[Rfam]
RNA sequence: AAAUAAGCGAUGAACAGGUAUAAAGAGCUAUUGAGUUGCUUACAGAGAGUUGCCGGUUGGUGCGAGGCAAUAGAACAAAUAGUAUCGAAACUCCCCUGUGAGCUUUGUGGUUGAAUAUUAGUAAGCCAUGACGGUAGUUCCGUUAUAACUACAAGAGAACCAACUAGGGUGGUACCGUGUUAUAGUUUAUGAUGCCCCUGGA
Number, nucleotide and partner (000 for none) at each position: 001a000002a000003a000004u000005a000006a000007g103008c102009g000010a000011u000012g000013a000014a000015c098016a097017g096018g095019u000020a000021u000022a000023a000024a000025g000026a000027g086028c000029u084030a083031u082032u081033g000034a000035g000036u000037u000038g000039c073040u072041u000042a000043c000044a000045g000046a000047g000048a000049g071050u070051u069052g068053c067054c066055g000056g000057u000058u000059g000060g000061u000062g000063c000064g000065a000066g054067g053068c052069a051070a050071u049072a040073g039074a000075a000076c000077a000078a000079a000080u000081a032082g031083u030084a029085u000086c027087g000088a000089a000090a000091c000092u000093c000094c000095c018096c017097u016098g015099u000100g000101a000102g008103c007104u000105u000106u130107g129108u128109g127110g126111u125112u124113g000114a000115a000116u000117a000118u000119u000120a000121g000122u000123a000124a112125g111126c110127c109128a108129u107130g106131a000132c142133g141134g140135u000136a000137g000138u000139u000140c134141c133142g132143u000144u000145a000146u000147a000148a000149c000150u000151a000152c000153a000154a000155g000156a000157g000158a000159a000160c000161c000162a000163a000164c000165u000166a199167g198168g197169g196170u000171g000172g000173u000174a000175c000176c000177g195178u194179g193180u192181u191182a190183u189184a188185g000186u000187u000188u184189a183190u182191g181192a180193u179194g178195c177196c169197c168198c167199u166200g000201g000202a000
Shown here is a 202-nucleotide RNA from Veillonella criceti, a member of the family "T-box leader". Gene Ontology term of the family: tRNA binding. NCBI's taxonomy places the organism under Bacteria, Bacillota, Negativicutes, Veillonellaceae, Veillonella. The literature on the family includes a 2003 paper in J Mol Biol by Gerdeman et al., "Solution structure of the Bacillus subtilis T-box antiterminator RNA: seven nucleotide bulge characterized by stacking and flexibility". Rfam classes the family as a cis-regulatory leader.